Description:
Rfam assigns this 52-nucleotide RNA from Noviherbaspirillum autotrophicum to the family "nhaA-I RNA".

[Rfam]
RNA sequence: GGGUGCUCACAAUCUUUGUGCAGCAGGUUCAUGCGUCGGUCGGGCCGCCACG
Numbered sequence: 001g002g003g004u005g006c007u008c009a010c011a012a013u014c015u016u017u018g019u020g021c022a023g024c025a026g027g028u029u030c031a032u033g034c035g036u037c038g039g040u041c042g043g044g045c046c047g048c049c050a051c052g
Base pairs, nucleotide, nucleotide: 005024006023007022008020009019010018011017034052035051036050038049039048040047

Annotation: The source organism's lineage runs through Bacteria, Pseudomonadota, Betaproteobacteria, Burkholderiales and Noviherbaspirillum. Rfam classes the family as a riboswitch.